The family of this 267-nucleotide RNA sequence from Molossus molossus is "Mason-Pfizer monkey virus packaging signal".
Rfam classes the family as a cis-regulatory element.
Rfam links the family to the GO term viral genome packaging.
Pairs were carried over by alignment from the consensus structure, which was predicted with PFOLD.

[Rfam]
RNA sequence: UGGCACCCAACGUGGGGCUCCAGCACGGGGGAUCUAGUGAAGGACGCUGUUCAAGUGACCAGCAGAAAGGAAAAGAAAAGAGGGAAUGACGUGUGAACCUGCUGCGUCUGCACCCCUCAGGUAAGUGAAUGGCGAUUAUGGGUCAAGCACUGAGCCAAGAUAAGAUGUUCGUUGAAGGACUAAGAAAGGCUAUCAAGGUACGAGGAGUAAAGGUAAAAAUUAAGCAUUUAUGUCAGUAUUUUGAAUAUGUUAAGGAAGUUUGUCCUU
Numbered sequence: 001u002g003g004c005a006c007c008c009a010a011c012g013u014g015g016g017g018c019u020c021c022a023g024c025a026c027g028g029g030g031g032a033u034c035u036a037g038u039g040a041a042g043g044a045c046g047c048u049g050u051u052c053a054a055g056u057g058a059c060c061a062g063c064a065g066a067a068a069g070g071a072a073a074a075g076a077a078a079a080g081a082g083g084g085a086a087u088g089a090c091g092u093g094u095g096a097a098c099c100u101g102c103u104g105c106g107u108c109u110g111c112a113c114c115c116c117u118c119a120g121g122u123a124a125g126u127g128a129a130u131g132g133c134g135a136u137u138a139u140g141g142g143u144c145a146a147g148c149a150c151u152g153a154g155c156c157a158a159g160a161u162a163a164g165a166u167g168u169u170c171g172u173u174g175a176a177g178g179a180c181u182a183a184g185a186a187a188g189g190c191u192a193u194c195a196a197g198g199u200a201c202g203a204g205g206a207g208u209a210a211a212g213g214u215a216a217a218a219a220u221u222a223a224g225c226a227u228u229u230a231u232g233u234c235a236g237u238a239u240u241u242u243g244a245a246u247a248u249g250u251u252a253a254g255g256a257a258g259u260u261u262g263u264c265c266u267u
Stems, first nucleotide, its partner, number of pairs: 006031003012026003036050001039047001080118003083114002090106004126145003130142001133140002152193001154190003201243005207237002211229004252267005
Dot-bracket structure: .....(((...(((.........)))..)))....(..(.......)..).............................(((((.....((((.........))))......)).))).......(((.(..((....)).))))......(.(((...............................)))..).......(((((.((..((((...........))))......)).)))))........(((((......)))))